The family of this 313-nucleotide RNA from Costertonia aggregata is "Bacterial RNase P class A". By type it is a ribozyme. Clan: RNaseP clan. A search with the family's covariance model found it, with a score of 197 bits. Taxonomically the source falls in Costertonia (Bacteria, Bacteroidota, Flavobacteriia, Flavobacteriaceae).

[Rfam]
RNA sequence: AUAGCAGGCCAACUUAUCGCUGCCGUUUUGCGGGAGAGGAAAGUCCGGACACCAUAGUGCAGUAUAGCGGGUAACGCCCGUCCACCGAAAGGUGAGGACCAGUGCAACAGAAAGAAUGUACAGUUAGGCUGUAGUGAAACCAGGUAAACUCUAUACGGUGAAACGUCAUGUAAAUCAGUGUUUGAGGGCUGCACGCCCAAGCUGAAGGGUAGGCGGUUAGAGCCUUUGGGCAACCAAGGGCCUAGAUAAAUGAUAAGCAACCUCGGACUUGGUUCGAGGUCAAACAGAAUCCGGCUUAUGGUCUGCUUGCACA
Numbered sequence: 001a002u003a004g005c006a007g008g009c010c011a012a013c014u015u016a017u018c019g020c021u022g023c024c025g026u027u028u029u030g031c032g033g034g035a036g037a038g039g040a041a042a043g044u045c046c047g048g049a050c051a052c053c054a055u056a057g058u059g060c061a062g063u064a065u066a067g068c069g070g071g072u073a074a075c076g077c078c079c080g081u082c083c084a085c086c087g088a089a090a091g092g093u094g095a096g097g098a099c100c101a102g103u104g105c106a107a108c109a110g111a112a113a114g115a116a117u118g119u120a121c122a123g124u125u126a127g128g129c130u131g132u133a134g135u136g137a138a139a140c141c142a143g144g145u146a147a148a149c150u151c152u153a154u155a156c157g158g159u160g161a162a163a164c165g166u167c168a169u170g171u172a173a174a175u176c177a178g179u180g181u182u183u184g185a186g187g188g189c190u191g192c193a194c195g196c197c198c199a200a201g202c203u204g205a206a207g208g209g210u211a212g213g214c215g216g217u218u219a220g221a222g223c224c225u226u227u228g229g230g231c232a233a234c235c236a237a238g239g240g241c242c243u244a245g246a247u248a249a250a251u252g253a254u255a256a257g258c259a260a261c262c263u264c265g266g267a268c269u270u271g272g273u274u275c276g277a278g279g280u281c282a283a284a285c286a287g288a289a290u291c292c293g294g295c296u297u298a299u300g301g302u303c304u305g306c307u308u309g310c311a312c313a
Base pairs, nucleotide, nucleotide: 003307004306005305006304007303008302009301010300011299013257014256015255016254017253018252020036021035023033024032025031026030041297042296043295045294046293047292048291049290050160051159052158053157057194058193059192060191062156063155064154065153066152067081068080069079070078071077082096083094084093085092086091097151098150102149103148104145105144119133120132121131122130123129124128164215165214166213167212175205176204177203178202179201186198187197188196189195222241223240224239225238226237227236228235229234